[Rfam]
Nucleotides: 065
Base pairs, nucleotide, nucleotide: 001064002063003062004061
Number, partner (000 for none) and nucleotide at each position: 001064c002063u003062g004061c005000a006000g007000u008000g009000a010000u011000g012000u013000g014000u015000u016000u017000c018000u019000u020000a021000g022000g023000a024000c025000a026000c027000c028000u029000u030000u031000g032000g033000a034000u035000c036000u037000u038000c039000u040000g041000u042000g043000a044000a045000a046000a047000u048000a049000a050000a051000c052000c053000g054000a055000u056000u057000c058000u059000g060000a061004g062003c063002a064001g065000c

Overview: Shown here is a 65-nucleotide sequence from Phocoena sinus, a member of the family "Small nucleolar RNA SNORD58". Lineage of the source: Eukaryota > Chordata > Euteleostomi > Dipnotetrapodomorpha > Phocoena. The family's RNA type in Rfam is C/D-box small nucleolar RNA. About the family: snoRNA U58 is found in introns 1, 3 and 6 of the ribosomal protein RPL17 gene in humans.